[Rfam]
RNA sequence: UUCCGUUGAUUGCCGGCUAAAAACGGUCACGUCCUGUGACCAACACCGGCACUAGAACAUCCUGUU
Numbered sequence: 001u002u003c004c005g006u007u008g009a010u011u012g013c014c015g016g017c018u019a020a021a022a023a024c025g026g027u028c029a030c031g032u033c034c035u036g037u038g039a040c041c042a043a044c045a046c047c048g049g050c051a052c053u054a055g056a057a058c059a060u061c062c063u064g065u066u
Stems, first nucleotide, its partner, number of pairs: 011051006026040005056066003
Dot-bracket structure: ..........((((((.........(((((.....))))).....))))))....(((.....)))
This 66-nucleotide RNA from Salibacterium salarium belongs to the Rfam family "Bacillaceae-1 RNA". Pairs were carried over by alignment from the consensus structure, which is taken from published work. Lineage of the source: Bacteria > Bacilli > Caryophanales > Bacillaceae > Salibacterium. It is annotated as a small RNA.